RNA: mir-9456 microRNA precursor family
RNA sequence: CGUGUAGCCGCUGACUCGCGAGAUCCUCUCGAGAGGAGAGGAUUUCGCGAGUCAGCGGCUACACG
Numbered sequence: 001c002g003u004g005u006a007g008c009c010g011c012u013g014a015c016u017c018g019c020g021a022g023a024u025c026c027u028c029u030c031g032a033g034a035g036g037a038g039a040g041g042a043u044u045u046c047g048c049g050a051g052u053c054a055g056c057g058g059c060u061a062c063a064c065g
Stems, first nucleotide, its partner, number of pairs: 001065003006060023